[Rfam]
RNA sequence: GACAAUAAACGAUAGAUGAAAUAAGUGUAGUGGACCCGGGGGCAGUACCCGGCGCCUCCACCAUUAUUUUCUUCCGGUGCGCUUGCUGUGCGGAAAGAAGCUUAUGGGGGCGAAACAGGCUCGACACGCAUGGUAAAGAUCUAUUUUUUGUCCGGCAUUGUACCACCGUUAUCGGGCUAAACUUACAGGUGCCAACGAUAACUCUGAGGUGCUCGCUGUUGCUGCAUAA
Numbered sequence: 001g002a003c004a005a006u007a008a009a010c011g012a013u014a015g016a017u018g019a020a021a022u023a024a025g026u027g028u029a030g031u032g033g034a035c036c037c038g039g040g041g042g043c044a045g046u047a048c049c050c051g052g053c054g055c056c057u058c059c060a061c062c063a064u065u066a067u068u069u070u071c072u073u074c075c076g077g078u079g080c081g082c083u084u085g086c087u088g089u090g091c092g093g094a095a096a097g098a099a100g101c102u103u104a105u106g107g108g109g110g111c112g113a114a115a116c117a118g119g120c121u122c123g124a125c126a127c128g129c130a131u132g133g134u135a136a137a138g139a140u141c142u143a144u145u146u147u148u149u150g151u152c153c154g155g156c157a158u159u160g161u162a163c164c165a166c167c168g169u170u171a172u173c174g175g176g177c178u179a180a181a182c183u184u185a186c187a188g189g190u191g192c193c194a195a196c197g198a199u200a201a202c203u204c205u206g207a208g209g210u211g212c213u214c215g216c217u218g219u220u221g222c223u224g225c226a227u228a229a
Stems, first nucleotide, its partner, number of pairs: 001152005014142004026130003030127003036052005053112007153168003